[Rfam]
RNA sequence: AGAUAAAGAACAAAGGCUAAGUUCGCCACGUCCUCGAAAAAUGAAAGGCAUUUUUCUUCGUGCGAUGCGUCGCUCCGAAGAUUUCCUUGUCCUGUGGCAACGCCUUUGCUAGUACAUCCUGUACG
Numbered sequence: 001a002g003a004u005a006a007a008g009a010a011c012a013a014a015g016g017c018u019a020a021g022u023u024c025g026c027c028a029c030g031u032c033c034u035c036g037a038a039a040a041a042u043g044a045a046a047g048g049c050a051u052u053u054u055u056c057u058u059c060g061u062g063c064g065a066u067g068c069g070u071c072g073c074u075c076c077g078a079a080g081a082u083u084u085c086c087u088u089g090u091c092c093u094g095u096g097g098c099a100a101c102g103c104c105u106u107u108g109c110u111a112g113u114a115c116a117u118c119c120u121g122u123a124c125g
Base pairs, nucleotide, nucleotide: 011108012107013106014105015104016103017102025098026097027096028095029094112124113123114122115121
RNA: Bacillaceae-1 RNA
Organism: Falsibacillus albus